[Rfam]
Shown here is a 125-nucleotide sequence from Erinaceus europaeus, a member of the family "Small nucleolar RNA SNORA40". Lineage of the source: Eukaryota > Bilateria > Deuterostomia > Laurasiatheria > Erinaceus.
RNA sequence: AGCACUUGUUUGUUCGCUUUUGUUACUGAGCAAAAGUGAUUAGACAAGUGCAAAAAAUAAAUCCUCUUUUGCAACCCAGAGCUCAUUGUUCAGUAUGAGUUUUGAUACAUAUAAGAAGGAACAUG
Numbered sequence: 001a002g003c004a005c006u007u008g009u010u011u012g013u014u015c016g017c018u019u020u021u022g023u024u025a026c027u028g029a030g031c032a033a034a035a036g037u038g039a040u041u042a043g044a045c046a047a048g049u050g051c052a053a054a055a056a057a058u059a060a061a062u063c064c065u066c067u068u069u070u071g072c073a074a075c076c077c078a079g080a081g082c083u084c085a086u087u088g089u090u091c092a093g094u095a096u097g098a099g100u101u102u103u104g105a106u107a108c109a110u111a112u113a114a115g116a117a118g119g120a121a122c123a124u125g
Stems, first nucleotide, its partner, number of pairs: 002051008011042001014039008026030001062121001064119002067116005077104010
About this RNA:
Rfam describes the family as follows. The snoRNA ACA 40 belongs to the H/ACA family of snoRNAs and guides the pseudouridylation of 28S rRNA subunit at position U4565. NB This family has a high threshold value to exclude a large number of closely related sequences that do not appear to have conserved H and ACA boxes, and may be pseudogenes. On this family, see Ofengand and Bakin, J Mol Biol 1997: "Mapping to nucleotide resolution of pseudouridine residues in large subunit ribosomal RNAs from representative eukaryotes, prokaryotes, archaebacteria, mitochondria and chloroplasts". Rfam 15.1 lists 2,550 matches to the family in 517 species. The sequence is in the family's curated seed alignment. The family's consensus secondary structure was predicted with RNAalifold.